[Rfam]
RNA sequence: AAAACCUAAAUAUGAAAGCCCUACCUCUCUUCCAUCCUGCGACUCCUAGGUCGCGCCAGUUGAAAAACAAGGUUUUGACUCUU
Numbered sequence: 001a002a003a004a005c006c007u008a009a010a011u012a013u014g015a016a017a018g019c020c021c022u023a024c025c026u027c028u029c030u031u032c033c034a035u036c037c038u039g040c041g042a043c044u045c046c047u048a049g050g051u052c053g054c055g056c057c058a059g060u061u062g063a064a065a066a067a068c069a070a071g072g073u074u075u076u077g078a079c080u081c082u083u
Stems, first nucleotide, its partner, number of pairs: 033062002037059001038055007
A member of the RNA family "BsrC" from Peribacillus deserti, 83 nucleotides long. It is annotated as a small RNA. The source organism's lineage runs through Bacteria, Bacillati, Bacillota, Caryophanales and Peribacillus. The family's consensus secondary structure was predicted with CMfinder. The 301 nucleotide sequence from Kouji Nakamura has been trimmed to a highly conserved ~85 nucleotide long core to form this family. The literature on the family includes a 2008 paper in Gene by Saito et al., "Novel small RNA-encoding genes in the intergenic regions of Bacillus subtilis".